RNA sequence: CAUCGGUCUCCUCGCGACGAUAUGUUGGUUACCCCGUCAGGCCCGGAAGGGAGCAGCGGAGCCUUCGGACUCGGGCGCCGAGAUUCGGCUGGUGUGG
Numbered sequence: 001c002a003u004c005g006g007u008c009u010c011c012u013c014g015c016g017a018c019g020a021u022a023u024g025u026u027g028g029u030u031a032c033c034c035c036g037u038c039a040g041g042c043c044c045g046g047a048a049g050g051g052a053g054c055a056g057c058g059g060a061g062c063c064u065u066c067g068g069a070c071u072c073g074g075g076c077g078c079c080g081a082g083a084u085u086c087g088g089c090u091g092g093u094g095u096g097g
Base pairs, nucleotide, nucleotide: 004091005090006089007088008087011082012081013080014079015075018073019072020071023067024066027063028062029061034059035058036057037056042051043050044049
Shown here is a 97-nucleotide RNA sequence from Methylophaga thiooxydans, a member of the family "Bacterial small signal recognition particle RNA". Rfam describes the family as follows. The signal recognition particle (SRP) is a universally conserved ribonucleoprotein involved in the co-translational targeting of proteins to membranes. It scores 56 bits against the family's covariance model. The family is grouped with related families in Rfam's "SRP clan". Rfam classes the family as a non-coding RNA gene.